[Rfam]
RNA: mir-544 microRNA precursor family
Organism: Trichechus manatus
RNA sequence: ACCACCUGGGAAUCUUGUUAAAAUACAGGUUCUGAUUCAGCAGGUCUGCAGUGGGGCCUGAGGUCCUGCAUUUCUAAUAAGCCCCCAGGUGACGUCAA
Numbered sequence: 001a002c003c004a005c006c007u008g009g010g011a012a013u014c015u016u017g018u019u020a021a022a023a024u025a026c027a028g029g030u031u032c033u034g035a036u037u038c039a040g041c042a043g044g045u046c047u048g049c050a051g052u053g054g055g056g057c058c059u060g061a062g063g064u065c066c067u068g069c070a071u072u073u074c075u076a077a078u079a080a081g082c083c084c085c086c087a088g089g090u091g092a093c094g095u096c097a098a
Stems, first nucleotide, its partner, number of pairs: 003091003009085002014081007021073003026068004031063003